RNA sequence: GCAGCGGGACGACCCGCUUGCCGUGGCCGGCGAGGUCCAGGACGACCUGG
Numbered sequence: 001g002c003a004g005c006g007g008g009a010c011g012a013c014c015c016g017c018u019u020g021c022c023g024u025g026g027c028c029g030g031c032g033a034g035g036u037c038c039a040g041g042a043c044g045a046c047c048u049g050g
Stems, first nucleotide, its partner, number of pairs: 001021004005016004037050005
RNA: Guanidine-II riboswitch aptamer (mini-ykkC)
Organism: Streptomyces sp. CB02056